[Rfam]
RNA sequence: UCCAUAAAGUAGAGAGUACUACUAAACUCCUCUGCACAGUGUAGUGUUUCCUACUUUAUGGAU
Numbered sequence: 001u002c003c004a005u006a007a008a009g010u011a012g013a014g015a016g017u018a019c020u021a022c023u024a025a026a027c028u029c030c031u032c033u034g035c036a037c038a039g040u041g042u043a044g045u046g047u048u049u050c051c052u053a054c055u056u057u058a059u060g061g062a063u
Base pairs, nucleotide, nucleotide: 003060004059005058006057007056008055009054010053011052012051015048016047017046018045019044020043021042022041
Shown here is a 63-nucleotide RNA from Salmo salar, a member of the family "mir-142 microRNA precursor family". It is one of the family's seed sequences. For this family Rfam cites "MicroRNA identity and abundance in porcine skeletal muscles determined by deep sequencing" (Nielsen et al., Anim Genet, 2010). Its family is annotated with miRNA-mediated post-transcriptional gene silencing and RISC complex in the Gene Ontology.